[Rfam]
RNA sequence: GAGAGUGAACUUAGAACUCUCAGCACAUUGUAUGUUAAUAGCGUUACUUUUGGCCGGGUUACGUGGUUAGAGAAU
Number, nucleotide and partner (000 for none) at each position: 001g021002a020003g019004a018005g017006u016007g000008a000009a000010c000011u000012u000013a000014g000015a000016a006017c005018u004019c003020u002021c001022a000023g000024c000025a000026c000027a000028u000029u000030g000031u000032a000033u000034g000035u070036u069037a068038a067039u066040a000041g064042c063043g062044u061045u000046a059047c058048u057049u056050u000051u000052g000053g000054c000055c000056g049057g048058g047059u046060u000061a044062c043063g042064u041065g000066g039067u038068u037069a036070g035071a000072g000073a000074a000075u000